[Rfam]
RNA sequence: ACACUGAUUUUUUUAAAUGAUAAAAAAGUGCAAUAAUAUACAUUAAGUCUAAAACGUUGGAUUGCAUACCAACGAUAAAUUCCACAGGGAGGGGGUUUUAGUCCGUAGGUCGCCUGGGAGUAACCCAGCGGAGUCGGGCAUACCAUAAACGCCCGGGCCUUAUGGUAUCAUUGAUGAUUUCCCCCUACCAACG
Dot-bracket structure: .......................................................(((((.............................((((((.....(((((....((((.((((.....))))))))...))))).((((((...............)))))).............)))))).))))).
Source information:
The record is a 193-nucleotide RNA sequence, which matches "R2 RNA element" in Rfam. The family has 15 seed sequences and 3,698 matches in Rfam 15.1. A reference for the family is Ruschak et al. (2004), "Secondary structure models of the 3' untranslated regions of diverse R2 RNAs", RNA. The match comes from Rfam's covariance-model search (49 bits). The base pairs follow the family's consensus structure, which is taken from published work.